RNA sequence: AACAGUUAAAUAUUAACCCCUCAUAUAAUGUUGGGAAUAUGGCCCAAAAGUCUCUACCCGGUUGCCGUAAACGACCGGACUAUGAGGGAAGUAUUCUGAACA
Numbered sequence: 001a002a003c004a005g006u007u008a009a010a011u012a013u014u015a016a017c018c019c020c021u022c023a024u025a026u027a028a029u030g031u032u033g034g035g036a037a038u039a040u041g042g043c044c045c046a047a048a049a050g051u052c053u054c055u056a057c058c059c060g061g062u063u064g065c066c067g068u069a070a071a072c073g074a075c076c077g078g079a080c081u082a083u084g085a086g087g088g089a090a091g092u093a094u095u096c097u098g099a100a101c102a
Stems, first nucleotide, its partner, number of pairs: 018088008029049001031047005058078007

Shown here is a 102-nucleotide RNA sequence from Tenuibacillus multivorans, a member of the family "Purine riboswitch aptamer". The family's consensus secondary structure is taken from published work. Rfam 15.1 lists 4,097 matches to the family in 1,411 species.